[Rfam]
RNA sequence: CUAUGAUUUUUAAAAAAUCAUGGCGGAAGGAG
Numbered sequence: 001c002u003a004u005g006a007u008u009u010u011u012a013a014a015a016a017a018u019c020a021u022g023g024c025g026g027a028a029g030g031a032g
Base pairs, nucleotide, nucleotide: 001023002022003021004020005019008016009015010014
RNA: L31-Firmicutes ribosomal protein leader